This 67-nucleotide RNA from Rhizobium sp. AC44/96 belongs to the Rfam family "S-element". Pairs were carried over by alignment from the consensus structure, which is taken from published work. Rfam classes the family as a cis-regulatory element. The literature on the family includes a 2004 paper in Mol Microbiol by Venkova-Canova et al., "Two discrete elements are required for the replication of a repABC plasmid: an antisense RNA and a stem-loop structure". This family represents a group of S-elements from p42d and related plasmids. The S-element has multiple functions and is believed to act as a negative regulator of repC transcription, be required for efficient replication and act as a translational enhancer of repC. Gene Ontology terms of the family: mRNA transcription and translation regulator activity.
[Rfam]
RNA sequence: AGUCAAGCGUUUUUGGCACCGUUUCUGGUGAGCGGAUUUCUUUUGCCUUUUGAGGGUGAGAGAAAUG
Numbered sequence: 001a002g003u004c005a006a007g008c009g010u011u012u013u014u015g016g017c018a019c020c021g022u023u024u025c026u027g028g029u030g031a032g033c034g035g036a037u038u039u040c041u042u043u044u045g046c047c048u049u050u051u052g053a054g055g056g057u058g059a060g061a062g063a064a065a066u067g
Base pairs, nucleotide, nucleotide: 010063011062012061013060014059017058018057019056020055023054024053025052027050028049030048032046033045034044035043036042
Dot-bracket structure: .........(((((..((((..(((.((.(.(((((.....))))).))).))))))))))))....